[Rfam]
RNA sequence: AAUUAGGUUUGUAGGAACAAACAGAAACAAAUGCAUUUAAUAUCCGAUAAGUAGCAAUACGCAAUGGGG
Numbered sequence: 001a002a003u004u005a006g007g008u009u010u011g012u013a014g015g016a017a018c019a020a021a022c023a024g025a026a027a028c029a030a031a032u033g034c035a036u037u038u039a040a041u042a043u044c045c046g047a048u049a050a051g052u053a054g055c056a057a058u059a060c061g062c063a064a065u066g067g068g069g
Base pairs, nucleotide, nucleotide: 004021007018008017009016010015043068044067045066051060052059053058
The family of this 69-nucleotide RNA sequence from Beta vulgaris is "Plastid-clpP 5UTR RNA". Plastid clpP is a non-coding RNA (ncRNA) recognised in plastids. It was found in the prime untranslated region (5UTR) of a protease complex subunit (clpP) in plastids, suggesting a posible cis-regulatory function. The match comes from Rfam's covariance-model search (70 bits). On this family, see Richter et al., Plant Commun 2023: "Retrograde signaling in plants: A critical review focusing on the GUN pathway and beyond". It is annotated as a cis-regulatory element.